A member of the RNA family "MAT2A 3'UTR stem loop D" from Pteropus alecto, 41 nucleotides long.
It is annotated as a cis-regulatory element.
For this family Rfam cites "New families of human regulatory RNA structures identified by comparative analysis of vertebrate genomes" (Parker et al., Genome Res, 2011).
RNA sequence: UCUGGGGUAUGGCCGAAGUACAGAGAAGCCAUCGCCUCAUG
Number, nucleotide and partner (000 for none) at each position: 001u041002c000003u039004g038005g037006g036007g035008u034009a032010u031011g030012g029013c028014c000015g000016a000017a000018g000019u000020a000021c000022a000023g000024a000025g000026a000027a000028g013029c012030c011031a010032u009033c000034g008035c007036c006037u005038c004039a003040u000041g001